[Rfam]
RNA sequence: GAAGCAUCAGUGAUGAACAAUCUCAAUUUGUUAUCCUUGCACUUUGAUUGUCAGUGAAGAAAAUAAUGGGGAAUGAUUACUCUGAGAUGCUC
Numbered sequence: 001g002a003a004g005c006a007u008c009a010g011u012g013a014u015g016a017a018c019a020a021u022c023u024c025a026a027u028u029u030g031u032u033a034u035c036c037u038u039g040c041a042c043u044u045u046g047a048u049u050g051u052c053a054g055u056g057a058a059g060a061a062a063a064u065a066a067u068g069g070g071g072a073a074u075g076a077u078u079a080c081u082c083u084g085a086g087a088u089g090c091u092c
Base pairs, nucleotide, nucleotide: 003091004090005089006088007087008086
Dot-bracket structure: ..((((((.............................................................................)))))).

A member of the RNA family "Small nucleolar RNA snoR26" from Lupinus angustifolius, 92 nucleotides long.
For this family Rfam cites "Multiple snoRNA gene clusters from Arabidopsis" (Brown et al., RNA, 2001).
Its family is annotated with RNA processing and nucleolus in the Gene Ontology.
Pairs were carried over by alignment from the consensus structure, which was predicted with WAR.
Rfam classes the family as a C/D-box small nucleolar RNA.
The match comes from Rfam's covariance-model search (94 bits).
The family has 8 seed sequences and 611 matches in Rfam 15.1.